[Rfam]
RNA: tRNA
RNA sequence: CAGAUAGAAGCCAAAAGGUCAGGCGCUUUCUUUGGGUGAAAGAUCUAGUUAGUUCGAGUCUAUCCUAUCUGA
Numbered sequence: 001c002a003g004a005u006a007g008a009a010g011c012c013a014a015a016a017g018g019u020c021a022g023g024c025g026c027u028u029u030c031u032u033u034g035g036g037u038g039a040a041a042g043a044u045c046u047a048g049u050u051a052g053u054u055c056g057a058g059u060c061u062a063u064c065c066u067a068u069c070u071g072a
Stems, first nucleotide, its partner, number of pairs: 001071007010024003026042005048064001050062003